[Rfam]
RNA: 6S / SsrS RNA
RNA sequence: CAUUUCCUGCAGCGUUCGAUAUGCUCUGGGUUUUUUCUUGAGCCUAAUUAAUUACCCCGGGAGAUACCGUCCGGCGAUGUGUGCAGGUCCGCCCCUGAGCGGAAAGUCUGAUUCGCCUUUCGUGUCUCCCACCUGAACCAUCGGUUCAAGGGCGAAGGAGCAUAACGGCGCAUGCGGGAAUGCC
Numbered sequence: 001c002a003u004u005u006c007c008u009g010c011a012g013c014g015u016u017c018g019a020u021a022u023g024c025u026c027u028g029g030g031u032u033u034u035u036u037c038u039u040g041a042g043c044c045u046a047a048u049u050a051a052u053u054a055c056c057c058c059g060g061g062a063g064a065u066a067c068c069g070u071c072c073g074g075c076g077a078u079g080u081g082u083g084c085a086g087g088u089c090c091g092c093c094c095c096u097g098a099g100c101g102g103a104a105a106g107u108c109u110g111a112u113u114c115g116c117c118u119u120u121c122g123u124g125u126c127u128c129c130c131a132c133c134u135g136a137a138c139c140a141u142c143g144g145u146u147c148a149a150g151g152g153c154g155a156a157g158g159a160g161c162a163u164a165a166c167g168g169c170g171c172a173u174g175c176g177g178g179a180a181u182g183c184c
Stems, first nucleotide, its partner, number of pairs: 004180008012171004017167002035152003039148006059130003063126005073117005083107002088103005